[Rfam]
Rfam assigns this 74-nucleotide RNA sequence from Merops nubicus to the family "mir-551 microRNA precursor family". The base pairs follow the family's consensus structure, which was predicted with RNAalifold. The source organism's lineage runs through Eukaryota, Aves, Coraciimorphae, Coraciiformes and Merops. Its family is annotated with miRNA-mediated post-transcriptional gene silencing and RISC complex in the Gene Ontology. The family has 29 seed sequences and 1,097 matches in Rfam 15.1. For this family Rfam cites "Identification of novel chicken microRNAs and analysis of their genomic organization" (Shao et al., Gene, 2008).

RNA sequence: UGACCUUAGAAAUCAAGUGUAGGUGGAGCCUGUGGGUGUGACUGGAGGCGACCCAUCCUUGGUUUCAAAGGUCU
Number, nucleotide and partner (000 for none) at each position: 001u000002g073003a072004c071005c070006u069007u068008a000009g066010a065011a064012a063013u062014c061015a000016a059017g058018u000019g000020u000021a000022g053023g052024u051025g000026g000027a000028g049029c048030c047031u046032g000033u000034g000035g000036g000037u000038g000039u000040g000041a000042c000043u000044g000045g000046a031047g030048g029049c028050g000051a024052c023053c022054c000055a000056u000057c000058c017059u016060u000061g014062g013063u012064u011065u010066c009067a000068a007069a006070g005071g004072u003073c002074u000